The family of this 166-nucleotide sequence from Nocardia sp. SYP-A9097 is "FMN riboswitch aptamer (RFN element)". NCBI's taxonomy places the organism under Bacteria, Bacillati, Actinomycetes, Nocardiaceae, Nocardia. Gene Ontology term of the family: FMN binding. The RFN element is a highly conserved domain that is found frequently in the 5'-untranslated regions of prokaryotic mRNAs that encode for flavin mononucleotide (FMN) biosynthesis and transport proteins. The match comes from Rfam's covariance-model search (88 bits).

RNA sequence: AGACGUUCUCAGGGCGGGGUGGAAAUCCCCACCGGCGGUCAUGGCGUCCGGCCUAUCCGGUGCGCAUGAGCCCGCGAGCGCCGCACCAUCCACGGAUGGUGCGGGACAGCAGAUUCCGGUGUGAGCCCGGAGCCGACGGUCACAGUCCGGAGGAAAGAGAACGCGA
Number, nucleotide and partner (000 for none) at each position: 001a000002g000003a000004c163005g162006u161007u160008c159009u158010c157011a000012g000013g000014g000015c000016g000017g029018g028019g027020u000021g000022g000023a000024a000025a000026u000027c019028c018029c017030c000031a146032c145033c135034g134035g075036c074037g073038g072039u000040c000041a000042u000043g000044g000045c000046g000047u000048c000049c000050g000051g000052c000053c000054u000055a000056u000057c000058c000059g000060g000061u000062g000063c000064g000065c000066a000067u000068g000069a000070g133071c132072c038073c037074g036075c035076g000077a000078g110079c109080g000081c000082c000083g000084c000085a000086c000087c000088a000089u000090c000091c000092a000093c000094g000095g000096a000097u000098g000099g000100u000101g000102c000103g000104g000105g000106a000107c000108a000109g079110c078111a000112g000113a000114u000115u131116c130117c129118g128119g127120u000121g000122u000123g000124a000125g000126c000127c119128c118129g117130g116131a115132g071133c070134c034135g033136a000137c149138g148139g147140u000141c000142a000143c000144a000145g032146u031147c139148c138149g137150g000151a000152g000153g000154a000155a000156a000157g010158a009159g008160a007161a006162c005163g004164c000165g000166a000